Rfam assigns this 76-nucleotide RNA sequence from Aotus nancymaae to the family "mir-320 microRNA precursor family". The source organism's lineage runs through Eukaryota, Chordata, Primates, Simiiformes and Aotus.
RNA sequence: GAUUUUUCUCGCCUUCUCUUCCCAGUUCUUCCCAGAGUCGGGAAAAGCUGGGUUGAGACGGUGAAAAAAAAAAACA
Numbered sequence: 001g002a003u004u005u006u007u008c009u010c011g012c013c014u015u016c017u018c019u020u021c022c023c024a025g026u027u028c029u030u031c032c033c034a035g036a037g038u039c040g041g042g043a044a045a046a047g048c049u050g051g052g053u054u055g056a057g058a059c060g061g062u063g064a065a066a067a068a069a070a071a072a073a074a075c076a
Stems, first nucleotide, its partner, number of pairs: 015058004021052005029044005
Gene Ontology terms of the family: cellular response to glucose stimulus, miRNA-mediated post-transcriptional gene silencing and long-term synaptic potentiation.